[Rfam]
RNA sequence: GGGAUACCCAAAAUAGAGGCACUUUUCUUUUUGUCUGUACUGGAAAGUGCUUCCAUUUUGGGGAAUCCC
Numbered sequence: 001g002g003g004a005u006a007c008c009c010a011a012a013a014u015a016g017a018g019g020c021a022c023u024u025u026u027c028u029u030u031u032u033g034u035c036u037g038u039a040c041u042g043g044a045a046a047g048u049g050c051u052u053c054c055a056u057u058u059u060g061g062g063g064a065a066u067c068c069c
Stems, first nucleotide, its partner, number of pairs: 001069005007063003010059005016053012
Shown here is a 69-nucleotide sequence from Cebus imitator, a member of the family "mir-373 microRNA precursor family". Gene Ontology terms of the family: miRNA-mediated post-transcriptional gene silencing and RISC complex. The family's consensus secondary structure was predicted with RNAalifold. Rfam 15.1 lists 23 matches to the family in 22 species.